[Rfam]
RNA sequence: ACAUUCAGAAGAGGUGCGAUACUUAGGUAUUUAAUGUGAGGUGACGAACGCCGUUGAGCAUUAAAGAGGGAAGUACUCGCCGAGAAAAAUAACACGUCGUCGUCGUUAUUUUUCGGUUUAUGGGGCUGAAUCCUCAAAACUGUCACCAAUAUAGGUGGAGAGCUUCUGGCAGU
Numbered sequence: 001a002c003a004u005u006c007a008g009a010a011g012a013g014g015u016g017c018g019a020u021a022c023u024u025a026g027g028u029a030u031u032u033a034a035u036g037u038g039a040g041g042u043g044a045c046g047a048a049c050g051c052c053g054u055u056g057a058g059c060a061u062u063a064a065a066g067a068g069g070g071a072a073g074u075a076c077u078c079g080c081c082g083a084g085a086a087a088a089a090u091a092a093c094a095c096g097u098c099g100u101c102g103u104c105g106u107u108a109u110u111u112u113u114c115g116g117u118u119u120a121u122g123g124g125g126c127u128g129a130a131u132c133c134u135c136a137a138a139a140c141u142g143u144c145a146c147c148a149a150u151a152u153a154g155g156u157g158g159a160g161a162g163c164u165u166c167u168g169g170c171a172g173u
Stems, first nucleotide, its partner, number of pairs: 006168006016080004021074004030065008084114010115141004121136005143158005